[Rfam]
RNA: Plastid-ycf2 5UTR RNA
Organism: Carnegiea gigantea
RNA sequence: AUGCACCCAGUAGGAAUUGAACCUACUAAUUCGCCAAAUGAGUUGGCUGCUUUAACCAUUCAGCCAUGGAUGC
Dot-bracket structure: ..(((.((.(((((.......)))))...........(((.(((((.((.......)).)))))))))).)))